Rfam assigns this 59-nucleotide RNA sequence to the family "Mu-gpT-DE RNA". The family's RNA type in Rfam is small RNA. It is one of the family's seed sequences.
RNA sequence: CCCUGACUAAUUGUUCCACAUGGAACAUUAGACACUAGCCAAGACAGGAGAAUCACAUG
Numbered sequence: 001c002c003c004u005g006a007c008u009a010a011u012u013g014u015u016c017c018a019c020a021u022g023g024a025a026c027a028u029u030a031g032a033c034a035c036u037a038g039c040c041a042a043g044a045c046a047g048g049a050g051a052a053u054c055a056c057a058u059g
Base pairs, nucleotide, nucleotide: 002048003047004046005045007031008030009029010028011027